[Rfam]
RNA sequence: GUGUUUAAGGGCAAACCACUCGAAAGGGUGGGACGCAAAGCCAUGGGUCUGUAGCCACUAUGUUGGUAUGACUGCCAGGCUGCCACUU
Dot-bracket structure: (.........((...((((((....))))))..[))..((((.((((((....................))).])))))))......)
RNA: c-di-GMP-I-GGC riboswitch aptamer
Organism: Neomoorella humiferrea